Shown here is a 144-nucleotide RNA from Brenneria rubrifaciens, a member of the family "Leucine operon leader".

[Rfam]
RNA sequence: AAUGACGGGGCAUUAUGUUCAAUUUCACUCUCCUACUAGGCCUACUACUAAACGCAUCUCUAUUGCGCGGUAUGCUGGUGGGCAGGAUUCAGAACUGAUUUCACGCCACCCAAUAAAAACCCGCGCUGAUGCGCGGGUUUUUUU
Numbered sequence: 001a002a003u004g005a006c007g008g009g010g011c012a013u014u015a016u017g018u019u020c021a022a023u024u025u026c027a028c029u030c031u032c033c034u035a036c037u038a039g040g041c042c043u044a045c046u047a048c049u050a051a052a053c054g055c056a057u058c059u060c061u062a063u064u065g066c067g068c069g070g071u072a073u074g075c076u077g078g079u080g081g082g083c084a085g086g087a088u089u090c091a092g093a094a095c096u097g098a099u100u101u102c103a104c105g106c107c108a109c110c111c112a113a114u115a116a117a118a119a120c121c122c123g124c125g126c127u128g129a130u131g132c133g134c135g136g137g138u139u140u141u142u143u144u
Base pairs, nucleotide, nucleotide: 004107006105007104009102010101012099013098014097017095018094019093020092030085031084032082033081034080035079036078037077038076046072047071048070049069053067054066055065056064116141117140118139119138120137121136122135123134124133125132126131

Rfam describes the family as follows. At least 6 amino acid operons are known to be regulated by attenuation. In each a leader sequence of 150-200 bp is found upstream of the first gene in the operon. This leader sequence can assume two different secondary structures known as the terminator and the anti-terminator structure. In each case the leader also codes for very short peptide sequence that is rich in the end product amino acid of the operon.
Taxonomically the source falls in Brenneria (Bacteria, Pseudomonadati, Pseudomonadota, Gammaproteobacteria).
A search with the family's covariance model found it, with a score of 97 bits.